[Rfam]
RNA sequence: UUUUAGCUAUGAUGUGGAAGGUUGCUGACACACCCGGCCCCUUUGCCAUGGCGGGUUGGAAGGAAAUUUCCACGGAGUAUGUCUAUUCUUAAAAUGGGCGAAAA
Numbered sequence: 001u002u003u004u005a006g007c008u009a010u011g012a013u014g015u016g017g018a019a020g021g022u023u024g025c026u027g028a029c030a031c032a033c034c035c036g037g038c039c040c041c042u043u044u045g046c047c048a049u050g051g052c053g054g055g056u057u058g059g060a061a062g063g064a065a066a067u068u069u070c071c072a073c074g075g076a077g078u079a080u081g082u083c084u085a086u087u088c089u090u091a092a093a094a095u096g097g098g099c100g101a102a103a104a
Stems, first nucleotide, its partner, number of pairs: 014073003019069003025062002029058001080103001082101002087098003